[Rfam]
RNA sequence: AUAUCGGGGGAUCGCCACCAGUCAGCGCGUUGCGCCCACUGGUGCGUUUGUC
Number, nucleotide and partner (000 for none) at each position: 001a000002u000003a000004u000005c000006g000007g000008g000009g000010g000011a000012u000013c000014g000015c000016c044017a043018c042019c041020a040021g039022u038023c000024a000025g035026c034027g033028c032029g000030u000031u000032g028033c027034g026035c025036c000037c000038a022039c021040u020041g019042g018043u017044g016045c000046g000047u000048u000049u000050g000051u000052c000
RNA: ffh sRNA